[Rfam]
RNA sequence: GGUCAGUGAUGAGCAGUAAAAGGUCUGAUUACCCACAAUCCCCUCCUGCUGCCUCUGGCUCCCAGCAGCCCUGCUUUCUGCUCCCAUCAUGCUCCAGUGAUGCAGCAGUGGUGCCGGCAGCUGCUGACACACAGGAUGUGACAUCACGCCAGGGCCUGUACAGAGCUCCUACAGCCUCUCUGUGAUGAUGUCAUCCAACAGAAUCUAUCAGCACGGAGUGUCGGGCUGAGGAGGAGGAGCAGGGAGCUGAUCUCAAGUUUUCAAGCUGAGACC
Dot-bracket structure: ((((.................................(((...((.((..........(((((((((((.............((..(..(((.........)))..)..))........))))))).......(.....((...(.....((((.(((((.........))))).))))..........)...)))..................))))........)).)).................)))..................))))
Rfam assigns this 273-nucleotide RNA from Oreochromis niloticus to the family "Small Cajal body specific RNA 6".
Rfam links the family to the GO terms nucleolus and RNA processing.
U88 is small Cajal body specific RNA (scaRNA). scaRNAs are a novel class of small nuclear RNAs which localise to the Cajal bodies. U88 is found associated with both fibrillarin and Gar1p and co-localises with coilin in Cajal bodies.
Lineage of the source: Eukaryota > Clupeocephala > Cichliformes > Pseudocrenilabrinae > Oreochromis.
The family's consensus secondary structure is taken from published work.